Shown here is a 128-nucleotide sequence from Ornithinibacillus halophilus, a member of the family "Ribosomal protein L20 leader".
This family is a putative r-protein leader autoregulatory structure found in B. subtilis and other low-GC Gram-positive bacteria. It is located in the 5' untranslated regions of mRNAs encoding initiation factor 3 followed by ribosomal proteins L35 and L20 (infC-rpmI-rplT).
The family's RNA type in Rfam is cis-regulatory leader.
The base pairs follow the family's consensus structure, which was predicted with CMfinder.
The match comes from Rfam's covariance-model search (75 bits).
[Rfam]
Nucleotides: 128
Base pairs, nucleotide, nucleotide: 011026012025013024014023015022016021028057029056030055036050037049038048039046040045093114094113095112096111097110098109099108100107101106
Number, partner (000 for none) and nucleotide at each position: 001000u002000a003000u004000g005000a006000c007000a008000a009000g010000u011026a012025g013024a014023g015022g016021c017000a018000c019000c020000c021016g022015c023014u024013u025012c026011u027000c028057a029056c030055c031000u032000g033000u034000u035000c036050a037049a038048c039046g040045c041000u042000a043000a044000a045040g046039c047000u048038g049037u050036u051000g052000a053000c054000u055030g056029g057028u058000u059000a060000c061000a062000a063000c064000a065000u066000g067000u068000u069000u070000a071000a072000a073000c074000g075000u076000u077000u078000u079000a080000a081000c082000u083000u084000u085000g086000a087000c088000g089000a090000c091000g092000u093114g094113u095112g096111g097110g098109u099108g100107c101106a102000u103000u104000u105000a106101u107100g108099u109098g110097c111096c112095c113094a114093c115000u116000u117000u118000u119000u120000u121000a122000a123000u124000g125000g126000a127000u128000a